[Rfam]
RNA sequence: CCGGAAUCCGCACCCACUCACACUCACGUACGGCAGGAGCGGGGGAACCAGGUAAGCCGCCGAUCCGGAAUCCGGAACGGCUUGGGGUGAAGUCGCAUUGACCAUGCGACCGGGCAUCUCCAGCCCGAACCCGACAGCUCACCUCGCAGGCGACGGAGAGGAAUUCG
Numbered sequence: 001c002c003g004g005a006a007u008c009c010g011c012a013c014c015c016a017c018u019c020a021c022a023c024u025c026a027c028g029u030a031c032g033g034c035a036g037g038a039g040c041g042g043g044g045g046a047a048c049c050a051g052g053u054a055a056g057c058c059g060c061c062g063a064u065c066c067g068g069a070a071u072c073c074g075g076a077a078c079g080g081c082u083u084g085g086g087g088u089g090a091a092g093u094c095g096c097a098u099u100g101a102c103c104a105u106g107c108g109a110c111c112g113g114g115c116a117u118c119u120c121c122a123g124c125c126c127g128a129a130c131c132c133g134a135c136a137g138c139u140c141a142c143c144u145c146g147c148a149g150g151c152g153a154c155g156g157a158g159a160g161g162a163a164u165u166c167g
Stems, first nucleotide, its partner, number of pairs: 001150002007038003039147006049084005085132003093109004112126004
Dot-bracket structure: ((....(((..........................)))((((((....(((((..........................)))))(((.....((((.........))))..((((.......))))...))).........)))))).)).................
About this RNA: A member of the RNA family "c-di-AMP riboswitch aptamer (ydaO/yuaA leader)" from Streptomyces sp. ISL-96, 167 nucleotides long. Rfam links the family to the GO terms cyclic-di-AMP binding and regulation of gene expression.